[Rfam]
RNA sequence: UUCGGUAUGUGUAACUGGCGAAACGUGGAGUACCACGAGGGAGCACAUACGUCAUACGGCCGAUCGCCUGGGCAGAGGUA
Numbered sequence: 001u002u003c004g005g006u007a008u009g010u011g012u013a014a015c016u017g018g019c020g021a022a023a024c025g026u027g028g029a030g031u032a033c034c035a036c037g038a039g040g041g042a043g044c045a046c047a048u049a050c051g052u053c054a055u056a057c058g059g060c061c062g063a064u065c066g067c068c069u070g071g072g073c074a075g076a077g078g079u080a
Stems, first nucleotide, its partner, number of pairs: 005050008015040002017068005025036004057075001059073003

Shown here is an 80-nucleotide RNA from Paenibacillus whitsoniae, a member of the family "ZMP/ZTP riboswitch aptamer (pfl RNA motif)". The family's consensus secondary structure is taken from published work. Gene Ontology terms of the family: one-carbon metabolic process and regulation of purine nucleotide biosynthetic process. On this family, see Kim et al., Mol Cell 2015: "An ancient riboswitch class in bacteria regulates purine biosynthesis and one-carbon metabolism".